[Rfam]
RNA: Small nucleolar RNA SNORA61
Organism: Mustela putorius
RNA sequence: GCCCUCUAGUUCCCUUUCCCGUCAGAUCUUAACACUGGUCUUGGUGGUUGUUAAAGGAGGAAAAGGAGGGGCGCCUGGGUGGCUCAGUGGGUUAAAGCCUCUGUCUUCGGCUCAGGUCAUG
Numbered sequence: 001g002c003c004c005u006c007u008a009g010u011u012c013c014c015u016u017u018c019c020c021g022u023c024a025g026a027u028c029u030u031a032a033c034a035c036u037g038g039u040c041u042u043g044g045u046g047g048u049u050g051u052u053a054a055a056g057g058a059g060g061a062a063a064a065g066g067a068g069g070g071g072c073g074c075c076u077g078g079g080u081g082g083c084u085c086a087g088u089g090g091g092u093u094a095a096a097g098c099c100u101c102u103g104u105c106u107u108c109g110g111c112u113c114a115g116g117u118c119a120u121g
Stems, first nucleotide, its partner, number of pairs: 003060005019047005025040004071104002081099003